Manganese Mn2+ riboswitch aptamer (yybP-ykoY): a 210-nucleotide RNA sequence from Roseateles asaccharophilus. The source organism's lineage runs through Bacteria, Pseudomonadati, Pseudomonadota, Burkholderiales and Roseateles. A reference for the family is Price et al. (2015), "Mn(2+)-sensing mechanisms of yybP-ykoY orphan riboswitches", Mol Cell. This RNA was originally discovered in E. coli during a large scale screen and was named SraF. The family was later found to exist upstream of related families of protein genes in many bacteria, including the the yybP and ykoK genes in B. subtilis. The specific functions of these proteins are unknown, but this structured RNA element may be involved in their genetic regulation as a riboswitch.

RNA sequence: CCUGCUGUCAUUGGGGAGUAGCCGCUGCGGCCGCCCGAUCCCGAACACCGGUGAUCGCGCCCUGCAGGCCCGUGUCAACAGACUUGGUUCGCAAGAGCCAUGGCACGGGCAGUGUCCACACCUGGCAAGACCUUUGACCAUGCAGCUCGGCAUCCCCUCACACGGCCGGAGCGGCAUGGUCAAUCGUCCGUGCCUCAGGCCGUGUGGGUU
Numbered sequence: 001c002c003u004g005c006u007g008u009c010a011u012u013g014g015g016g017a018g019u020a021g022c023c024g025c026u027g028c029g030g031c032c033g034c035c036c037g038a039u040c041c042c043g044a045a046c047a048c049c050g051g052u053g054a055u056c057g058c059g060c061c062c063u064g065c066a067g068g069c070c071c072g073u074g075u076c077a078a079c080a081g082a083c084u085u086g087g088u089u090c091g092c093a094a095g096a097g098c099c100a101u102g103g104c105a106c107g108g109g110c111a112g113u114g115u116c117c118a119c120a121c122c123u124g125g126c127a128a129g130a131c132c133u134u135u136g137a138c139c140a141u142g143c144a145g146c147u148c149g150g151c152a153u154c155c156c157c158u159c160a161c162a163c164g165g166c167c168g169g170a171g172c173g174g175c176a177u178g179g180u181c182a183a184u185c186g187u188c189c190g191u192g193c194c195u196c197a198g199g200c201c202g203u204g205u206g207g208g209u210u
Base pairs, nucleotide, nucleotide: 026066027065028064029063030062068110069109070108071107072106073105074104075103076102077101085100086099087098088097089096114209115208116207117206118205119204120203121202